[Rfam]
RNA sequence: AAGGUGGAUGCCGAAAAACCUGAAAGAGUAGGCA
Numbered sequence: 001a002a003g004g005u006g007g008a009u010g011c012c013g014a015a016a017a018a019c020c021u022g023a024a025a026g027a028g029u030a031g032g033c034a
Stems, first nucleotide, its partner, number of pairs: 002021004010033003

DUF805b RNA: a 34-nucleotide sequence. The family's RNA type in Rfam is cis-regulatory element. Its Rfam clan is "DUF805 clan". The family's consensus secondary structure is taken from published work.